[Rfam]
RNA sequence: AAUUACGAGUAAUCGCGGUCUAGUUAUCUAGGCUGAGGAAGGUCCACGCCCGCGCGAACUGAGAUGUUUGCAGUGUUUGUGCUUGGCCUAAUAAGCCAAGGUACCUUCGGGUAACGGCAGCGAAAGCGCUAAGGUCAGUGAGACUAUGCGUUAAUAGCUUGAAAGUGCCACAGAGACGUAUUACUGUGAGAAAUUGCAGUGGUGGAACGAGGUAAACCCCGCAAGCGGGCAACCCAAACUUUGGUAGGGGCGCUUCAUAACGAGAAAUGAAUCUACUGUGAAGGCUUAAUUGUAGAUAGAUGAUUACUAACUGUAUUAGGUUUGCCAACCUAAUACAUGAACAGAACGUGGCCUAUAGGA
Numbered sequence: 001a002a003u004u005a006c007g008a009g010u011a012a013u014c015g016c017g018g019u020c021u022a023g024u025u026a027u028c029u030a031g032g033c034u035g036a037g038g039a040a041g042g043u044c045c046a047c048g049c050c051c052g053c054g055c056g057a058a059c060u061g062a063g064a065u066g067u068u069u070g071c072a073g074u075g076u077u078u079g080u081g082c083u084u085g086g087c088c089u090a091a092u093a094a095g096c097c098a099a100g101g102u103a104c105c106u107u108c109g110g111g112u113a114a115c116g117g118c119a120g121c122g123a124a125a126g127c128g129c130u131a132a133g134g135u136c137a138g139u140g141a142g143a144c145u146a147u148g149c150g151u152u153a154a155u156a157g158c159u160u161g162a163a164a165g166u167g168c169c170a171c172a173g174a175g176a177c178g179u180a181u182u183a184c185u186g187u188g189a190g191a192a193a194u195u196g197c198a199g200u201g202g203u204g205g206a207a208c209g210a211g212g213u214a215a216a217c218c219c220c221g222c223a224a225g226c227g228g229g230c231a232a233c234c235c236a237a238a239c240u241u242u243g244g245u246a247g248g249g250g251c252g253c254u255u256c257a258u259a260a261c262g263a264g265a266a267a268u269g270a271a272u273c274u275a276c277u278g279u280g281a282a283g284g285c286u287u288a289a290u291u292g293u294a295g296a297u298a299g300a301u302g303a304u305u306a307c308u309a310a311c312u313g314u315a316u317u318a319g320g321u322u323u324g325c326c327a328a329c330c331u332a333a334u335a336c337a338u339g340a341a342c343a344g345a346a347c348g349u350g351g352c353c354u355a356u357a358g359g360a
Stems, first nucleotide, its partner, number of pairs: 004360001006358001007356001008308007016035006040354003044351005049229005054071006077224005082100006101115001102113004116219002119159003126151004133145003165217002167213003182201008233249003253283007284293002312337011

The record is a 360-nucleotide RNA from Companilactobacillus farciminis, which matches "Bacterial RNase P class B" in Rfam. Ribonuclease P (RNase P) is a ubiquitous endoribonuclease, found in archaea, bacteria and eukarya as well as chloroplasts and mitochondria. The family's RNA type in Rfam is ribozyme.